Small nucleolar RNA ZL8: an 81-nucleotide sequence from Phocoena sinus. The match comes from Rfam's covariance-model search (70 bits). For this family Rfam cites "Insights into snoRNA biogenesis and processing from PAR-CLIP of snoRNA core proteins and small RNA sequencing" (Kishore et al., Genome Biol, 2013). The family's consensus secondary structure was predicted with RNAfold. Rfam classes the family as a C/D-box small nucleolar RNA. The family has 6 seed sequences and 113 matches in Rfam 15.1. Its family is annotated with RNA processing and nucleolus in the Gene Ontology.

RNA sequence: CCAGAGUGGCAAUGGUGACCUGGUUGGACUCGAGCCUCUGAGAACUUCUGAGGAUCUUUGAAACCACCUGAUCCACUCUUA
Numbered sequence: 001c002c003a004g005a006g007u008g009g010c011a012a013u014g015g016u017g018a019c020c021u022g023g024u025u026g027g028a029c030u031c032g033a034g035c036c037u038c039u040g041a042g043a044a045c046u047u048c049u050g051a052g053g054a055u056c057u058u059u060g061a062a063a064c065c066a067c068c069u070g071a072u073c074c075a076c077u078c079u080u081a
Stems, first nucleotide, its partner, number of pairs: 003080002006077001007075003018072001020070001022068003026064001032056002035053004040048003